[Rfam]
Background:
Rfam assigns this 173-nucleotide RNA sequence from Dysgonomonas mossii to the family "Bacteroidales-1 6S-Bacteroidales RNA suggested". It is annotated as a small RNA. The family's consensus secondary structure is taken from published work. The literature on the family includes a 2020 paper in Nat Commun by Ryan et al., "A high-resolution transcriptome map identifies small RNA regulation of metabolism in the gut microbe Bacteroides thetaiotaomicron". Bacteroidales-1 was first reported in a comparative genomics-based approach of genome and metagenome sequences from Weinberg et al. 2010 In a high-resolution transcriptome map study of Bacteroides thetaiotaomicron, Ryan et al. 2020 report this sRNA as 6S RNA homologue of Bacteroides, in the study they obtain evidence of small product RNAs (pRNAs) related to 6S function.
Nucleotides: 173
Base pairs, nucleotide, nucleotide: 052120053119054118056117057116058115059114060113061112062111063110066107067106073101074100075099076098077086078085079084087095088094089093
Number, partner (000 for none) and nucleotide at each position: 001000a002000g003000u004000c005000g006000u007000g008000u009000u010000g011000g012000u013000c014000g015000a016000u017000u018000g019000g020000g021000a022000a023000g024000c025000u026000c027000a028000u029000c030000a031000a032000u033000u034000a035000a036000a037000a038000a039000a040000u041000g042000a043000c044000c045000g046000a047000g048000a049000c050000a051000a052120g053119c054118u055000u056117u057116u058115g059114a060113u061112u062111c063110u064000a065000a066107u067106g068000g069000c070000g071000g072000g073101c074100c075099a076098c077086a078085c079084c080000u081000u082000c083000g084079g085078g086077u087095u088094g089093c090000u091000u092000a093089g094088c095087g096000c097000g098076g099075u100074g101073g102000a103000u104000u105000a106067c107066a108000a109000a110063g111062g112061g113060a114059u115058c116057g117056a118054a119053g120052c121000a122000c123000u124000c125000a126000a127000a128000u129000c130000c131000u132000g133000u134000u135000u136000u137000a138000c139000g140000g141000a142000g143000u144000u145000u146000c147000g148000g149000u150000a151000u152000a153000u154000c155000c156000a157000c158000c159000a160000a161000u162000a163000c164000g165000a166000c167000u168000u169000u170000c171000u172000a173000u